[Rfam]
RNA sequence: GACCGGUGCGUGUCAACCGGACGCGAUGGCAUAGGGAACGGACCAGGUUUUUCCGGUUUCCCGGUCCGGCCAACGAAACGGCAGCCGAGCCCUUAUCCCAUCCGCACC
Numbered sequence: 001g002a003c004c005g006g007u008g009c010g011u012g013u014c015a016a017c018c019g020g021a022c023g024c025g026a027u028g029g030c031a032u033a034g035g036g037a038a039c040g041g042a043c044c045a046g047g048u049u050u051u052u053c054c055g056g057u058u059u060c061c062c063g064g065u066c067c068g069g070c071c072a073a074c075g076a077a078a079c080g081g082c083a084g085c086c087g088a089g090c091c092c093u094u095a096u097c098c099c100a101u102c103c104g105c106a107c108c
Stems, first nucleotide, its partner, number of pairs: 006107004011023004025102003028098002033093004039068006046062001069082003

Shown here is a 108-nucleotide RNA sequence from Devosia lucknowensis, a member of the family "Rhizobiales sRNA Atu_At1". On this family, see Wilms et al., RNA Biol 2012: "Deep sequencing uncovers numerous small RNAs on all four replicons of the plant pathogen Agrobacterium tumefaciens". By type it is a small RNA. Taxonomically the source falls in Devosia (Bacteria, Pseudomonadati, Alphaproteobacteria, Hyphomicrobiales). The family's consensus secondary structure was predicted with CMfinder. A search with the family's covariance model found it, with a score of 98 bits.